Rfam assigns this 50-nucleotide RNA from Halorubrum cibi to the family "eL15-Euryarchaeota ribosomal protein leader". The literature on the family includes a 2020 paper in BMC Microbiol by Eckert and Weinberg, "Discovery of 20 novel ribosomal leader candidates in bacteria and archaea".
RNA sequence: CUCGCUUCGGGACGAGACGACAUGUGGCCGGGUUCCGGCCGAAUCGCAAG
Numbered sequence: 001c002u003c004g005c006u007u008c009g010g011g012a013c014g015a016g017a018c019g020a021c022a023u024g025u026g027g028c029c030g031g032g033u034u035c036c037g038g039c040c041g042a043a044u045c046g047c048a049a050g
Base pairs, nucleotide, nucleotide: 001016002015003014004013018046019045020044026040027039028038029037030036